[Rfam]
RNA sequence: ACUCUAAUAGUUUAUUAAAAACAUUGGUCUUGUAAACCAAAGACUGAAGACUGCACCUCUUCUUAGAGUU
Dot-bracket structure: (((((((..((((.....)))).(((((.......))))).....(((((.......)))))))))))).
Numbered sequence: 001a002c003u004c005u006a007a008u009a010g011u012u013u014a015u016u017a018a019a020a021a022c023a024u025u026g027g028u029c030u031u032g033u034a035a036a037c038c039a040a041a042g043a044c045u046g047a048a049g050a051c052u053g054c055a056c057c058u059c060u061u062c063u064u065a066g067a068g069u070u
Stems, first nucleotide, its partner, number of pairs: 001069007010022004024040005046062005